The record is a 78-nucleotide RNA from Mola mola, which matches "mir-458 microRNA precursor family" in Rfam. The base pairs follow the family's consensus structure, which was predicted with RNAalifold. NCBI's taxonomy places the organism under Eukaryota, Metazoa, Deuterostomia, Eupercaria, Mola. Its family is annotated with RISC complex and miRNA-mediated post-transcriptional gene silencing in the Gene Ontology.
[Rfam]
RNA sequence: UUGCAGAUGGAAGCGCCAUUUUCAGAGCUAUCAGUGUGACAGAUGUCAUAGCUCUUUAAAUGGUACUGCUGUAUGCAG
Numbered sequence: 001u002u003g004c005a006g007a008u009g010g011a012a013g014c015g016c017c018a019u020u021u022u023c024a025g026a027g028c029u030a031u032c033a034g035u036g037u038g039a040c041a042g043a044u045g046u047c048a049u050a051g052c053u054c055u056u057u058a059a060a061u062g063g064u065a066c067u068g069c070u071g072u073a074u075g076c077a078g
Base pairs, nucleotide, nucleotide: 002077003076004075007072008071009070012067013066015064016063017062018061019060020059021058024055025054026053027052028051029050030049031048